This 157-nucleotide sequence from Pseudomonas sp. ABC1 belongs to the Rfam family "radC RNA". The organism belongs to Pseudomonas, within Bacteria. By type it is a cis-regulatory element.

RNA sequence: AUCCUUGCUCCAUGUUCGUCGGCGUUGCCGACACAUGCCCAGGCAGCCAAGACCUUCAAGGCUGCGAGUGCGGCAAACCGCGCUGGUCAUUGUCUUCCCCUUGGACGCAUCGCGUCCAUCUACGCCACCCACAAGGGACUCCCUCCCUUGUGGACGG
Numbered sequence: 001a002u003c004c005u006u007g008c009u010c011c012a013u014g015u016u017c018g019u020c021g022g023c024g025u026u027g028c029c030g031a032c033a034c035a036u037g038c039c040c041a042g043g044c045a046g047c048c049a050a051g052a053c054c055u056u057c058a059a060g061g062c063u064g065c066g067a068g069u070g071c072g073g074c075a076a077a078c079c080g081c082g083c084u085g086g087u088c089a090u091u092g093u094c095u096u097c098c099c100c101u102u103g104g105a106c107g108c109a110u111c112g113c114g115u116c117c118a119u120c121u122a123c124g125c126c127a128c129c130c131a132c133a134a135g136g137g138a139c140u141c142c143c144u145c146c147c148u149u150g151u152g153g154a155c156g157g
Base pairs, nucleotide, nucleotide: 011037012036013035014034015033018032019031020030021029022028023027043065044064045063046062047061048060051088052087053086054085067084068083069082070081071080072079073078125157126156131151132150133149134148135147136146137145138144
Dot-bracket structure: ..........(((((..((((((...))))))))))).....((((((..[[[[.....)))))).(((((((....)))))))]]]]....................................((....((((((((.....))))))))....))